[Rfam]
RNA sequence: CUGUAGUUAUGAUUUCUACCUAAGACUCGGGUGAUAGAUUAUCUAUCUUAAUUUCCCGCUGAGGCCAGAAAAUGAUGUGAGUUUUGACUCCAUACUUUUUUGGUAUGGAGUCUUUCUAAUAUGGUA
Numbered sequence: 001c002u003g004u005a006g007u008u009a010u011g012a013u014u015u016c017u018a019c020c021u022a023a024g025a026c027u028c029g030g031g032u033g034a035u036a037g038a039u040u041a042u043c044u045a046u047c048u049u050a051a052u053u054u055c056c057c058g059c060u061g062a063g064g065c066c067a068g069a070a071a072a073u074g075a076u077g078u079g080a081g082u083u084u085u086g087a088c089u090c091c092a093u094a095c096u097u098u099u100u101u102g103g104u105a106u107g108g109a110g111u112c113u114u115u116c117u118a119a120u121a122u123g124g125u126a
Base pairs, nucleotide, nucleotide: 028058029057030056031055033047034046035045036044037043087111088110089109090108091107092106093105094104095103096102

Background: A member of the RNA family "Ribosomal protein L10 leader" from Holzapfeliella floricola, 126 nucleotides long. It is annotated as a cis-regulatory leader. The source organism's lineage runs through Bacteria, Bacillota, Bacilli, Holzapfeliella and Holzapfeliella floricola.